[Rfam]
RNA sequence: UGGGUUCUUGCUUCAACAGUGUUUGAACGGGACCCG
Numbered sequence: 001u002g003g004g005u006u007c008u009u010g011c012u013u014c015a016a017c018a019g020u021g022u023u024u025g026a027a028c029g030g031g032a033c034c035c036g
Base pairs, nucleotide, nucleotide: 001036002035003034004033005032006031007030008029010028012027013026014025015024016023017021